FMN riboswitch aptamer (RFN element): a 194-nucleotide RNA from Stenotrophomonas daejeonensis.

RNA sequence: GAACGUCUUCAGGGCGGGGUGCGAUUCCCCACCGGCGGUAGGCGCGGCCAUUCCGAUGGAAUGCACGCGCGAGCCCGCGAGCGCCGAGGCCGAUGGGGGUUGCGCAUCAUGAUGCGGGCUCCGCUUGGCCGAGGGUCAGCAGAUCCGGUCCGAUGCCGGAGCCGACGGUAUAGUCCGGAUGAAAGAAGACGGCC
Numbered sequence: 001g002a003a004c005g006u007c008u009u010c011a012g013g014g015c016g017g018g019g020u021g022c023g024a025u026u027c028c029c030c031a032c033c034g035g036c037g038g039u040a041g042g043c044g045c046g047g048c049c050a051u052u053c054c055g056a057u058g059g060a061a062u063g064c065a066c067g068c069g070c071g072a073g074c075c076c077g078c079g080a081g082c083g084c085c086g087a088g089g090c091c092g093a094u095g096g097g098g099g100u101u102g103c104g105c106a107u108c109a110u111g112a113u114g115c116g117g118g119c120u121c122c123g124c125u126u127g128g129c130c131g132a133g134g135g136u137c138a139g140c141a142g143a144u145c146c147g148g149u150c151c152g153a154u155g156c157c158g159g160a161g162c163c164g165a166c167g168g169u170a171u172a173g174u175c176c177g178g179a180u181g182a183a184a185g186a187a188g189a190c191g192g193c194c
Stems, first nucleotide, its partner, number of pairs: 004191007017029003031174002033164002035078004073162002081140002144160005166177003
The source organism's lineage runs through Bacteria, Pseudomonadati, Pseudomonadota, Gammaproteobacteria and Stenotrophomonas.